Rfam assigns this 106-nucleotide RNA from Sulfobacillus sp. hq2 to the family "TPP riboswitch aptamer (THI element)".

RNA sequence: ACAUGGUACUAGGGGUGCCUAGAGGCUGAGAAGCAACGUGACCGUUGCUAACCCUUUCAACUCGAUCUGGAUAAUGCCAGCGGGAGGAAAGUGCCAGUGACUGCGA
Numbered sequence: 001a002c003a004u005g006g007u008a009c010u011a012g013g014g015g016u017g018c019c020u021a022g023a024g025g026c027u028g029a030g031a032a033g034c035a036a037c038g039u040g041a042c043c044g045u046u047g048c049u050a051a052c053c054c055u056u057u058c059a060a061c062u063c064g065a066u067c068u069g070g071a072u073a074a075u076g077c078c079a080g081c082g083g084g085a086g087g088a089a090a091g092u093g094c095c096a097g098u099g100a101c102u103g104c105g106a
Stems, first nucleotide, its partner, number of pairs: 006094005011055004017026003033048005061086003067080004

Rfam 15.1 lists 16,130 matches to the family in 8,693 species.